[Rfam]
RNA sequence: UAGUUUUGUGGUGAUGGAGUUCACCUAAAAUGCUUGGUAAUAAGCUAAUGACUCCUACUUUACU
Number, nucleotide and partner (000 for none) at each position: 001u000002a000003g000004u000005u000006u000007u000008g000009u000010g025011g024012u023013g022014a000015u000016g055017g054018a053019g052020u051021u050022c013023a012024c011025c010026u000027a000028a000029a000030a000031u000032g045033c044034u043035u042036g000037g000038u000039a000040a000041u000042a035043a034044g033045c032046u000047a000048a000049u000050g021051a020052c019053u018054c017055c016056u000057a000058c000059u000060u000061u000062a000063c000064u000
Shown here is a 64-nucleotide RNA from Caloramator sp. E03, a member of the family "Fluoride riboswitch aptamer (crcB RNA motif)".
The source organism's lineage runs through Bacteria, Clostridia, Eubacteriales, Clostridiaceae and Caloramator.
Gene Ontology terms of the family: positive regulation of gene expression and response to fluoride.